RNA sequence: GUGUAAUUAAAAGUACACCACUAUUGGUGUAAUUAAAAGUACACCAAUAGUGGUGUACUUUUAAUUACAC
Numbered sequence: 001g002u003g004u005a006a007u008u009a010a011a012a013g014u015a016c017a018c019c020a021c022u023a024u025u026g027g028u029g030u031a032a033u034u035a036a037a038a039g040u041a042c043a044c045c046a047a048u049a050g051u052g053g054u055g056u057a058c059u060u061u062u063a064a065u066u067a068c069a070c
Stems, first nucleotide, its partner, number of pairs: 001070003005066012018052001020051008
The record is a 70-nucleotide sequence from Carya illinoinensis, which matches "mir-16 microRNA precursor family" in Rfam.
Its family is annotated with miRNA-mediated post-transcriptional gene silencing and RISC complex in the Gene Ontology.
The family is grouped with related families in Rfam's "mir-15 clan".
The organism belongs to Carya, within Eukaryota.
A search with the family's covariance model found it, with a score of 38 bits.